[Rfam]
RNA sequence: AGACCUGGAGAGAAAAGCAGGGCCUGAUCUGCAGCCUCCAUGGCAGCUGUUGAUCAGCCUGUGCCUCUCUCUUUCUCUCCG
Numbered sequence: 001a002g003a004c005c006u007g008g009a010g011a012g013a014a015a016a017g018c019a020g021g022g023c024c025u026g027a028u029c030u031g032c033a034g035c036c037u038c039c040a041u042g043g044c045a046g047c048u049g050u051u052g053a054u055c056a057g058c059c060u061g062u063g064c065c066u067c068u069c070u071c072u073u074u075c076u077c078u079c080c081g
Stems, first nucleotide, its partner, number of pairs: 008073006015066001017064003022059001024057006032049004
Dot-bracket structure: .......((((((.(.(((..(.((((((..((((..........))))..)))))).)..))).).))))))........
The record is an 81-nucleotide RNA from Pipistrellus kuhlii, which matches "mir-574 microRNA precursor family" in Rfam.
The family has 6 seed sequences and 4,084 matches in Rfam 15.1.
Clan: mir-574 microRNA precursor clan.